[Rfam]
Shown here is a 223-nucleotide RNA sequence from Salmo salar, a member of the family "Small nucleolar RNA SNORA73 family". It is annotated as an H/ACA-box small nucleolar RNA. Gene Ontology terms of the family: nucleolus and RNA processing. U17 (SNORA73A and SNORA73B) also known as E1 belongs to the H/ACA class of small nucleolar RNAs (snoRNAs). Vertebrate U17 is intron-encoded and ranges in length from 200-230 nucleotides, longer than most snoRNAs. Taxonomically the source falls in Salmo (Eukaryota, Craniata, Actinopteri, Salmoninae). On this family, see Enright et al., RNA 1996: "5'ETS rRNA processing facilitated by four small RNAs: U14, E3, U17, and U3". The match comes from Rfam's covariance-model search (184 bits).
RNA sequence: UCAAUGUGGACAGCCGGUGAGGUUGCUCUUGCAUGGCUCCGUCCAAGUGGCUUAUGGGAGCGUAGCACUGUACAGUGCCAUGAUGUACAGUCCCGUUCCACAACAUUGUACAGCAAGCCUGUUCCCAGCCUUUGGGCUGGUGGGGACGGCGUCCUGCAUAUUCCUACGUCUUCCCAGAGCCUCUGGGCCAUGACUGGGCAGGCAAACCAUGUAGUGCACAAGU
Numbered sequence: 001u002c003a004a005u006g007u008g009g010a011c012a013g014c015c016g017g018u019g020a021g022g023u024u025g026c027u028c029u030u031g032c033a034u035g036g037c038u039c040c041g042u043c044c045a046a047g048u049g050g051c052u053u054a055u056g057g058g059a060g061c062g063u064a065g066c067a068c069u070g071u072a073c074a075g076u077g078c079c080a081u082g083a084u085g086u087a088c089a090g091u092c093c094c095g096u097u098c099c100a101c102a103a104c105a106u107u108g109u110a111c112a113g114c115a116a117g118c119c120u121g122u123u124c125c126c127a128g129c130c131u132u133u134g135g136g137c138u139g140g141u142g143g144g145g146a147c148g149g150c151g152u153c154c155u156g157c158a159u160a161u162u163c164c165u166a167c168g169u170c171u172u173c174c175c176a177g178a179g180c181c182u183c184u185g186g187g188c189c190a191u192g193a194c195u196g197g198g199c200a201g202g203c204a205a206a207c208c209a210u211g212u213a214g215u216g217c218a219c220a221a222g223u
Stems, first nucleotide, its partner, number of pairs: 002108006008044004014036003019028003047101004056094004060088001062086003065081001154214006170201002173198003179188003
Pairs were carried over by alignment from the consensus structure, which is taken from published work.